[Rfam]
RNA sequence: AAUUCUGUCGUAAGAACCAAGAGAAGCAGAUCUAUUCUAUACCCGAUAUUUACCAAUAUGCAUGGGA
Numbered sequence: 001a002a003u004u005c006u007g008u009c010g011u012a013a014g015a016a017c018c019a020a021g022a023g024a025a026g027c028a029g030a031u032c033u034a035u036u037c038u039a040u041a042c043c044c045g046a047u048a049u050u051u052a053c054c055a056a057u058a059u060g061c062a063u064g065g066g067a
Stems, first nucleotide, its partner, number of pairs: 003021002007017001008015002042066003051058002